[Rfam]
RNA: c-di-GMP-I riboswitch aptamer
Organism: Desulforamulus ruminis
RNA sequence: GUCAGAUACUGGCAAACUGGUGGAAACACCGGGACGCAAAGCAAUAGGGCCUAAUCCUCCGGCAGGAGGGACGGCAGCCUGGCCGCCGAA
Numbered sequence: 001g002u003c004a005g006a007u008a009c010u011g012g013c014a015a016a017c018u019g020g021u022g023g024a025a026a027c028a029c030c031g032g033g034a035c036g037c038a039a040a041g042c043a044a045u046a047g048g049g050c051c052u053a054a055u056c057c058u059c060c061g062g063c064a065g066g067a068g069g070g071a072c073g074g075c076a077g078c079c080u081g082g083c084c085g086c087c088g089a090a
Base pairs, nucleotide, nucleotide: 012037013036017032018031019030020029021028022027041083042082046080047079048078049075050074051073056069057068058067059066